The family of this 73-nucleotide RNA sequence from Atlantisia rogersi is "mir-551 microRNA precursor family".
RNA sequence: UGACCUCGGAGACCAAGUACAGGUGGAGCCUGUGAUGUGAGUCGAGGCGACCCAUACUUGGUUUCAGGGGUCU
Numbered sequence: 001u002g003a004c005c006u007c008g009g010a011g012a013c014c015a016a017g018u019a020c021a022g023g024u025g026g027a028g029c030c031u032g033u034g035a036u037g038u039g040a041g042u043c044g045a046g047g048c049g050a051c052c053c054a055u056a057c058u059u060g061g062u063u064u065c066a067g068g069g070g071u072c073u
Stems, first nucleotide, its partner, number of pairs: 002072006009065006016058002022052003028048004
A search with the family's covariance model found it, with a score of 60 bits.
For this family Rfam cites "Conservation of small RNA pathways in platypus" (Murchison et al., Genome Res, 2008).
Rfam links the family to the GO terms miRNA-mediated post-transcriptional gene silencing and RISC complex.